Rfam assigns this 111-nucleotide RNA from Tatumella ptyseos to the family "Alpha operon ribosome binding site".
RNA sequence: UUAUUGCGUUCCCAUUUGAGUAUCCUGAAAACGGGCUUUUCAGAAUGGCACGCAGUUAAUUAGUAAUAGGAGUGCAUAGUGGCCCGUAUAGCAGGCAUUAACAUUCCUGAU
Numbered sequence: 001u002u003a004u005u006g007c008g009u010u011c012c013c014a015u016u017u018g019a020g021u022a023u024c025c026u027g028a029a030a031a032c033g034g035g036c037u038u039u040u041c042a043g044a045a046u047g048g049c050a051c052g053c054a055g056u057u058a059a060u061u062a063g064u065a066a067u068a069g070g071a072g073u074g075c076a077u078a079g080u081g082g083c084c085c086g087u088a089u090a091g092c093a094g095g096c097a098u099u100a101a102c103a104u105u106c107c108u109g110a111u
Stems, first nucleotide, its partner, number of pairs: 004055006012048002024095003032086004040110003
Rfam's curators write: The bacterial alpha operon ribosome binding site is surrounded by this complex pseudoknotted structure. By type it is a cis-regulatory element.